[Rfam]
RNA sequence: AAUUCAUGAAAGCUGAAUUUGGAACGGAGGAACCAAUGUUUGGGGCUAAUCUUACGAGAGACACCUUCCAGUCUUAGCCCGUCAGCUAACUCCGUAGGCAAUGGAAGGAACCCCC
Dot-bracket structure: ...........(((...(....)((((((....((.....))(((.....(....)..((((........))))...))).........)))))).)))................